Purine riboswitch aptamer: a 100-nucleotide RNA sequence from Halobacteroides halobius. Rfam's curators write: Riboswitches are metabolite binding domains within certain messenger RNAs that serve as precision sensors for their corresponding targets. Pairs were carried over by alignment from the consensus structure, which is taken from published work. Gene Ontology term of the family: purine nucleobase biosynthetic process.
[Rfam]
RNA sequence: UUAAAAAUAAUUAAAUAAGCGUAUAAUCUUAAGAAUAUGGCUUAAGAGUCUCUACCAGGGAGCCCUAAACUUCCUGACUACCAGUUAAGAAAUCCCUAAG
Numbered sequence: 001u002u003a004a005a006a007a008u009a010a011u012u013a014a015a016u017a018a019g020c021g022u023a024u025a026a027u028c029u030u031a032a033g034a035a036u037a038u039g040g041c042u043u044a045a046g047a048g049u050c051u052c053u054a055c056c057a058g059g060g061a062g063c064c065c066u067a068a069a070c071u072u073c074c075u076g077a078c079u080a081c082c083a084g085u086u087a088a089g090a091a092a093u094c095c096c097u098a099a100g
Stems, first nucleotide, its partner, number of pairs: 018086003021081003027047007056076007